A member of the RNA family "Betaproteobacteria toxic small RNA" from Oxalobacteraceae bacterium CAVE-383, 68 nucleotides long. The family's consensus secondary structure was predicted with WAR. The family has 51 seed sequences and 951 matches in Rfam 15.1. Rfam describes the family as follows. Overexpression in amino aid rich medium attenuates growth, suggesting role in repressing amino acid intake and metabolism. On this family, see Kimelman et al., Genome Res 2012: "A vast collection of microbial genes that are toxic to bacteria". A search with the family's covariance model found it, with a score of 58 bits. Lineage of the source: Bacteria > Pseudomonadati > Pseudomonadota > Burkholderiales > Oxalobacteraceae.
[Rfam]
RNA sequence: UGUCUCCUCCAAUCUCCUUUUAAAGAAAUUGGAUUCAGCCCGCACCGCAAGGUCGCGGGCUUUUUUUU
Numbered sequence: 001u002g003u004c005u006c007c008u009c010c011a012a013u014c015u016c017c018u019u020u021u022a023a024a025g026a027a028a029u030u031g032g033a034u035u036c037a038g039c040c041c042g043c044a045c046c047g048c049a050a051g052g053u054c055g056c057g058g059g060c061u062u063u064u065u066u067u068u
Stems, first nucleotide, its partner, number of pairs: 008033005013026002037061007